[Rfam]
RNA sequence: GGUCGCAAGUUAGAGAUCACAGCAGAAGUGCUCAUGGCCUGGGCCUGUCAGAUUCCAAUGAAUCUGCAAAUUCUGGU
Numbered sequence: 001g002g003u004c005g006c007a008a009g010u011u012a013g014a015g016a017u018c019a020c021a022g023c024a025g026a027a028g029u030g031c032u033c034a035u036g037g038c039c040u041g042g043g044c045c046u047g048u049c050a051g052a053u054u055c056c057a058a059u060g061a062a063u064c065u066g067c068a069a070a071u072u073c074u075g076g077u
Stems, first nucleotide, its partner, number of pairs: 013045001015044001017042002021077001023075005028040001030038001049066007
RNA: Mammalian CPEB3 ribozyme
Organism: Crocodylus porosus